[Rfam]
RNA: MIR2655 microRNA precursor family
RNA sequence: CCCUUAUCUUUUAAAAGUUUCAAGUUGGUCCCUUAUCUUUAUUUUAGGUUUCAAGUUGGUCCCUCCCGUCAAUUUUUUUACUAUUUCCGUUAAGUUUUGACACGUGGCAAACUAAUUUGGACACGUGGCACCCUUGGACAGAUGACACUUGUCCACAUUUAACGGUAAUAGUAAAAAAUUUGACGGGAGGGACCAACUUGAAACCUAAAAUAAAGAUAAGGGACCAACUUGAAACUUUUAAAAGAUAAGGGA
Numbered sequence: 001c002c003c004u005u006a007u008c009u010u011u012u013a014a015a016a017g018u019u020u021c022a023a024g025u026u027g028g029u030c031c032c033u034u035a036u037c038u039u040u041a042u043u044u045u046a047g048g049u050u051u052c053a054a055g056u057u058g059g060u061c062c063c064u065c066c067c068g069u070c071a072a073u074u075u076u077u078u079u080a081c082u083a084u085u086u087c088c089g090u091u092a093a094g095u096u097u098u099g100a101c102a103c104g105u106g107g108c109a110a111a112c113u114a115a116u117u118u119g120g121a122c123a124c125g126u127g128g129c130a131c132c133c134u135u136g137g138a139c140a141g142a143u144g145a146c147a148c149u150u151g152u153c154c155a156c157a158u159u160u161a162a163c164g165g166u167a168a169u170a171g172u173a174a175a176a177a178a179u180u181u182g183a184c185g186g187g188a189g190g191g192a193c194c195a196a197c198u199u200g201a202a203a204c205c206u207a208a209a210a211u212a213a214a215g216a217u218a219a220g221g222g223a224c225c226a227a228c229u230u231g232a233a234a235c236u237u238u239u240a241a242a243a244g245a246u247a248a249g250g251g252a
Base pairs, nucleotide, nucleotide: 002250003249004248005247006246007245008244023229024228025227027225028224029223031221032220033219034218035217036216037215038214039213040212041211042210043209045207046206047205